TPP riboswitch aptamer (THI element): a 103-nucleotide RNA sequence from Paenibacillus bovis. Pairs were carried over by alignment from the consensus structure, which is taken from published work. It scores 78 bits against the family's covariance model.
[Rfam]
RNA sequence: AAAGACCACUAGGGGAGCCAUAUACUGGCUGAGACGAGAUCGACUCGGACCCUUGGAACCUGAUCUAGUUCGUACUAGCGUAGGAAAGUGGAGACCGAGCAGG
Dot-bracket structure: .....(((((((((..((((.....))))......(((.....)))...)))).....((((..((((......))))..))))..)))))............